A member of the RNA family "Small nucleolar RNA snoR53Y" from Carex littledalei, 75 nucleotides long.

RNA sequence: GCUGCCAGUGAUGCUUUUUACAUACCAUGCUAAUACUGAUUUCUGCUGAGAAAGAAAUGUUUUCCUGAGGUGGCC
Dot-bracket structure: (((((................................................................))))).

The family has 7 seed sequences and 513 matches in Rfam 15.1. Rfam links the family to the GO terms nucleolus and RNA processing. By type it is a C/D-box small nucleolar RNA.